[Rfam]
RNA sequence: GAUGAUGUCACUCAUUCUAGUAGUGGUAGGAAAGCGCGCCUCCGAAGCGGGAUAACCCCGUUUGGACAGGAUGGCGCGCGACCAAGGCUCCCUCAGGGGCCUUUUUUUGUACCCGCC
Numbered sequence: 001g002a003u004g005a006u007g008u009c010a011c012u013c014a015u016u017c018u019a020g021u022a023g024u025g026g027u028a029g030g031a032a033a034g035c036g037c038g039c040c041u042c043c044g045a046a047g048c049g050g051g052a053u054a055a056c057c058c059c060g061u062u063u064g065g066a067c068a069g070g071a072u073g074g075c076g077c078g079c080g081a082c083c084a085a086g087g088c089u090c091c092c093u094c095a096g097g098g099g100c101c102u103u104u105u106u107u108u109g110u111a112c113c114c115g116c117c
Stems, first nucleotide, its partner, number of pairs: 009026001029114002034079007041071002045063006084103008
Background: Rhizobiales sRNA Atu_C8: a 117-nucleotide RNA from Labrenzia sp. 011. Rfam classes the family as a small RNA. The base pairs follow the family's consensus structure, which was predicted with CMfinder. The match comes from Rfam's covariance-model search (53 bits). The source organism's lineage runs through Bacteria, Alphaproteobacteria, Hyphomicrobiales, Stappiaceae and Labrenzia.